[Rfam]
RNA: Mitochondrial DNA control region secondary structure A
RNA sequence: UUCUUUCAUGGGGAGGCAAGUUUAAGUACCACCUAAGUAUUAGCCUAUUCAUUACAACCGCUAUGUAUUUCGUACAUUACUGCCAGCCACCAUGAAUAUCGUACA
Numbered sequence: 001u002u003c004u005u006u007c008a009u010g011g012g013g014a015g016g017c018a019a020g021u022u023u024a025a026g027u028a029c030c031a032c033c034u035a036a037g038u039a040u041u042a043g044c045c046u047a048u049u050c051a052u053u054a055c056a057a058c059c060g061c062u063a064u065g066u067a068u069u070u071c072g073u074a075c076a077u078u079a080c081u082g083c084c085a086g087c088c089a090c091c092a093u094g095a096a097u098a099u100c101g102u103a104c105a
Base pairs, nucleotide, nucleotide: 005096006095007094008093009092010091011090012088013087016083017082018081022036023035024034026032027031037058038057041054042053043052063077064076065075066074067073